[Rfam]
RNA sequence: AUGUUAUCACGAAAGGCAGAGGGAAUAGACCCAUUGAAGCCUUGGCAACCCUUUAUUAAAAAGAAGGUGCUAAAUUCUACUUUUUUCUGAAUGUAUUUUCAGGAAUUAGACAGAUAACCA
Numbered sequence: 001a002u003g004u005u006a007u008c009a010c011g012a013a014a015g016g017c018a019g020a021g022g023g024a025a026u027a028g029a030c031c032c033a034u035u036g037a038a039g040c041c042u043u044g045g046c047a048a049c050c051c052u053u054u055a056u057u058a059a060a061a062a063g064a065a066g067g068u069g070c071u072a073a074a075u076u077c078u079a080c081u082u083u084u085u086u087c088u089g090a091a092u093g094u095a096u097u098u099u100c101a102g103g104a105a106u107u108a109g110a111c112a113g114a115u116a117a118c119c120a
Base pairs, nucleotide, nucleotide: 003118004117005116006115007114008113013043014042015041016040017039021032022031023030026079027078028077029076044071045070046069047068049067050066051063052062053061054060075112080109081108084105085104086103087102088101089100090099091098
This 120-nucleotide RNA from Lacinutrix sp. WUR7 belongs to the Rfam family "SAM riboswitch aptamer (S box leader)".
The match comes from Rfam's covariance-model search (71 bits).